[Rfam]
RNA sequence: AUGCGAAUAAUUCUCGCCUGUUGGGUCUGUUUUGUGAUCUAAUCAGGGCUAGACAUUCGCUAGAGAAAAACCUUCAGAGUGUCCACAGAUGAGGUUUUGUACUUCUGUCUGUUUUCCUUUACUGUUGGUGACAGCU
Numbered sequence: 001a002u003g004c005g006a007a008u009a010a011u012u013c014u015c016g017c018c019u020g021u022u023g024g025g026u027c028u029g030u031u032u033u034g035u036g037a038u039c040u041a042a043u044c045a046g047g048g049c050u051a052g053a054c055a056u057u058c059g060c061u062a063g064a065g066a067a068a069a070a071c072c073u074u075c076a077g078a079g080u081g082u083c084c085a086c087a088g089a090u091g092a093g094g095u096u097u098u099g100u101a102c103u104u105c106u107g108u109c110u111g112u113u114u115u116c117c118u119u120u121a122c123u124g125u126u127g128g129u130g131a132c133a134g135c136u
Base pairs, nucleotide, nucleotide: 003060004059005058017047018046019045020044021042022041023040024039025038026037027036070129071128072127075124076123085112086111087110088109089108090107091106093104094103

A member of the RNA family "Small nucleolar RNA SNORA72" from Polypterus senegalus, 136 nucleotides long. The family's RNA type in Rfam is H/ACA-box small nucleolar RNA. The family's consensus secondary structure was predicted with PFOLD. Gene Ontology terms of the family: nucleolus and RNA processing. From the family's description: U72 is a member of the H/ACA class of snoRNAs. The snoRNA gene is located in intron 4 of the ribosomal L30 protein gene in human, mouse and chicken.